[Rfam]
Source information
Rfam assigns this 90-nucleotide RNA sequence from Drosophila persimilis to the family "mir-317 microRNA precursor family". It is one of the family's seed sequences. Rfam 15.1 lists 153 matches to the family in 144 species. The literature on the family includes a 2007 paper in Genome Res by Stark et al., "Systematic discovery and characterization of fly microRNAs using 12 Drosophila genomes". The family's consensus secondary structure was predicted with RNAalifold. Gene Ontology terms of the family: miRNA-mediated post-transcriptional gene silencing and RISC complex.

RNA sequence: UGCAACUGCCGUUGGGAUACACCCUGUGCUCGCUUUGAAUAUGGUGCAAGCAAGUGAACACAGCUGGUGGUAUCCAAUGGCCGUUCUGCA
Dot-bracket structure: .......(((((..(((.((((((((.(.((........................)).).)))..))).)).))).))))).........